[Rfam]
RNA: MIR394 microRNA precursor family
Organism: Hevea brasiliensis
RNA sequence: UUUACAGAGCCAGUUUGGCAUGCUGGCCGCCUCCAAGAAUCACACACUAUGCCAAGAAUUAACCCCUUAGAUAUGUAUGGAGGUGGACAGAAUGCCAAAUGGCUCUGCAAC
Numbered sequence: 001u002u003u004a005c006a007g008a009g010c011c012a013g014u015u016u017g018g019c020a021u022g023c024u025g026g027c028c029g030c031c032u033c034c035a036a037g038a039a040u041c042a043c044a045c046a047c048u049a050u051g052c053c054a055a056g057a058a059u060u061a062a063c064c065c066c067u068u069a070g071a072u073a074u075g076u077a078u079g080g081a082g083g084u085g086g087a088c089a090g091a092a093u094g095c096c097a098a099a100u101g102g103c104u105c106u107g108c109a110a111c
Stems, first nucleotide, its partner, number of pairs: 011101001015098006024089002027086008